[Rfam]
RNA sequence: CAGCAAGGCUUCCAGCGGGGCAGGGCCUGGCGUGGCCCCCGCCCUUCCUGCAGCUCUUGCCAGAGCAGCUCUGGGCCGGUUUGAGGCCUCUCGUGGCGCUUCCGGCGAGAGGUUAUAGACAGCCCGGACACCC
Numbered sequence: 001c002a003g004c005a006a007g008g009c010u011u012c013c014a015g016c017g018g019g020g021c022a023g024g025g026c027c028u029g030g031c032g033u034g035g036c037c038c039c040c041g042c043c044c045u046u047c048c049u050g051c052a053g054c055u056c057u058u059g060c061c062a063g064a065g066c067a068g069c070u071c072u073g074g075g076c077c078g079g080u081u082u083g084a085g086g087c088c089u090c091u092c093g094u095g096g097c098g099c100u101u102c103c104g105g106c107g108a109g110a111g112g113u114u115a116u117a118g119a120c121a122g123c124c125c126g127g128a129c130a131c132c133c
Base pairs, nucleotide, nucleotide: 003060004059005058006057007056008055018044019043020042023038024037025036026035027034072126073125074124075123076122087112088111089110090109091108092107094104095103